[Rfam]
RNA sequence: AUGUACAAAUGAUGAAUAAUAUCAGUUAUCCCUGUCAGACAUUUUUAUGUUGAUAACUAAAAUUUAUCUGAAGUAAAU
Numbered sequence: 001a002u003g004u005a006c007a008a009a010u011g012a013u014g015a016a017u018a019a020u021a022u023c024a025g026u027u028a029u030c031c032c033u034g035u036c037a038g039a040c041a042u043u044u045u046u047a048u049g050u051u052g053a054u055a056a057c058u059a060a061a062a063u064u065u066a067u068c069u070g071a072a073g074u075a076a077a078u
Stems, first nucleotide, its partner, number of pairs: 001078002004075003